RNA sequence: UAUUAAUGACGGAAAGGAAUGAUGGGUGGACGAUGAUUAACUAAUCUUAUUUUUAAAUGUUGAAAUUCAAUAAAUUUCAAUUUCAAAAAAAUAGGAUUAGUCUGCCCAAUUUCCAUACAACGGUAUUGCUAUUUAUGUUGCGCAAUAGUUUAUUUGGGUAUAAAUAUUUUAACGACUAAUCCUGCCAAAUUUAUUUGGGAGGAUUUUUUA
Numbered sequence: 001u002a003u004u005a006a007u008g009a010c011g012g013a014a015a016g017g018a019a020u021g022a023u024g025g026g027u028g029g030a031c032g033a034u035g036a037u038u039a040a041c042u043a044a045u046c047u048u049a050u051u052u053u054u055a056a057a058u059g060u061u062g063a064a065a066u067u068c069a070a071u072a073a074a075u076u077u078c079a080a081u082u083u084c085a086a087a088a089a090a091a092u093a094g095g096a097u098u099a100g101u102c103u104g105c106c107c108a109a110u111u112u113c114c115a116u117a118c119a120a121c122g123g124u125a126u127u128g129c130u131a132u133u134u135a136u137g138u139u140g141c142g143c144a145a146u147a148g149u150u151u152a153u154u155u156g157g158g159u160a161u162a163a164a165u166a167u168u169u170u171a172a173c174g175a176c177u178a179a180u181c182c183u184g185c186c187a188a189a190u191u192u193a194u195u196u197g198g199g200a201g202g203a204u205u206u207u208u209u210a
Stems, first nucleotide, its partner, number of pairs: 016114004023108004029102003042099013059081009121156003128149006178205006185198004